The record is a 379-nucleotide RNA from Pseudomonas saudiphocaensis, which matches "transfer-messenger RNA" in Rfam.
For this family Rfam cites "Probing the structure of the Escherichia coli 10Sa RNA (tmRNA)" (Felden et al., RNA, 1997).
The family's RNA type in Rfam is non-coding RNA gene.
Lineage of the source: Bacteria > Pseudomonadati > Pseudomonadota > Pseudomonadaceae > Pseudomonas.
Rfam describes the family as follows. Bacterial tmRNA, also known as 10Sa RNA or SsrA, is named for its dual tRNA and mRNA-like properties. Its role is to liberate the mRNA from a stalled ribosome. To accomplish this part of the tmRNA is used as a reading frame that ends in a translation stop signal.
RNA sequence: GGGGCCGAUUAGGAUUCGACGCCGGUAACGAAACUUUAGGUGCAUGCCGAGUUGGUAACAGAACUCGUAAAUCCACUGUUGCAAACCUAUAGUUGCCAACGACGACAACUACGAAGGGUACGCGCUAGCCGCCUAACCUUCAUCUGGUCGCUUCGGCGCCAGCGGUCAUGAGGGGAUGCCUGUAAACCCAAAAUGACUGUCAGACAGAACAGGAUCGCCGCCAAGUUCGCUGUAGACGUAACGGCUAAAACUCAUACAGCUCGCUCCAAGCACCCUGCCAAUCGGGCGGCGCGGAGUUAACUCAGUAGAUCUGGCUAAGCAUGUAGUACCGACAGCGGAGAACUGGCGGACGGGGGUUCAAAUCCCCCCGGCUCCACCA
Numbered sequence: 001g002g003g004g005c006c007g008a009u010u011a012g013g014a015u016u017c018g019a020c021g022c023c024g025g026u027a028a029c030g031a032a033a034c035u036u037u038a039g040g041u042g043c044a045u046g047c048c049g050a051g052u053u054g055g056u057a058a059c060a061g062a063a064c065u066c067g068u069a070a071a072u073c074c075a076c077u078g079u080u081g082c083a084a085a086c087c088u089a090u091a092g093u094u095g096c097c098a099a100c101g102a103c104g105a106c107a108a109c110u111a112c113g114a115a116g117g118g119u120a121c122g123c124g125c126u127a128g129c130c131g132c133c134u135a136a137c138c139u140u141c142a143u144c145u146g147g148u149c150g151c152u153u154c155g156g157c158g159c160c161a162g163c164g165g166u167c168a169u170g171a172g173g174g175g176a177u178g179c180c181u182g183u184a185a186a187c188c189c190a191a192a193a194u195g196a197c198u199g200u201c202a203g204a205c206a207g208a209a210c211a212g213g214a215u216c217g218c219c220g221c222c223a224a225g226u227u228c229g230c231u232g233u234a235g236a237c238g239u240a241a242c243g244g245c246u247a248a249a250a251c252u253c254a255u256a257c258a259g260c261u262c263g264c265u266c267c268a269a270g271c272a273c274c275c276u277g278c279c280a281a282u283c284g285g286g287c288g289g290c291g292c293g294g295a296g297u298u299a300a301c302u303c304a305g306u307a308g309a310u311c312u313g314g315c316u317a318a319g320c321a322u323g324u325a326g327u328a329c330c331g332a333c334a335g336c337g338g339a340g341a342a343c344u345g346g347c348g349g350a351c352g353g354g355g356g357u358u359c360a361a362a363u364c365c366c367c368c369c370g371g372c373u374c375c376a377c378c379a
Stems, first nucleotide, its partner, number of pairs: 001375007020348007034335002037332001039330003043323005048067005055082007131151002163199006173189003179213005217245004223239001229260005263297005270290002273286003277315004281310003352368005